Record summary: Rfam assigns this 124-nucleotide RNA sequence from Gallibacterium salpingitidis to the family "Histidine operon leader". It scores 66 bits against the family's covariance model. At least 6 amino acid operons are known to be regulated by attenuation. In each a leader sequence of 150-200 bp is found upstream of the first gene in the operon. This leader sequence can assume two different secondary structures known as the terminator and the anti-terminator structure. In each case the leader also codes for very short peptide sequence that is rich in the end product amino acid of the operon. The terminator structure is recognised as a termination signal for RNA polymerase and the operon is not transcribed. This structure forms when the cell has an excess of the regulatory amino acid and ribosome movement over the leader transcript is not impeded. When there is a deficiency of the charged tRNA of the regulatory amino acid the ribosome translating the leader peptide stalls and the antiterminator structure can form. This allows RNA polymerase to transcribe the operon. In the Rfam alignment the consensus structure is of the terminator structure. By type it is a cis-regulatory leader. A reference for the family is Kolter and Yanofsky (1982), "Attenuation in amino acid biosynthetic operons", Annu Rev Genet.
[Rfam]
RNA sequence: UCAUCAUCACCAUUCAACUGAAUAAUCUUUCAGGCGUUUGGUGCUGCUUGGAAGAUAAAAAAACUUCCGAGAGUACGAAUACAAAAUAACACCCUUCGGAAGUCAUUCUGAAGGGUUUUUUAUU
Numbered sequence: 001u002c003a004u005c006a007u008c009a010c011c012a013u014u015c016a017a018c019u020g021a022a023u024a025a026u027c028u029u030u031c032a033g034g035c036g037u038u039u040g041g042u043g044c045u046g047c048u049u050g051g052a053a054g055a056u057a058a059a060a061a062a063a064c065u066u067c068c069g070a071g072a073g074u075a076c077g078a079a080u081a082c083a084a085a086a087u088a089a090c091a092c093c094c095u096u097c098g099g100a101a102g103u104c105a106u107u108c109u110g111a112a113g114g115g116u117u118u119u120u121u122a123u124u
Base pairs, nucleotide, nucleotide: 008046009045011040012039018033019032020031021030047071048070049069050068051067052066053065054064086121088119089118091116092115093114094113095112096111097110098109099108100107101106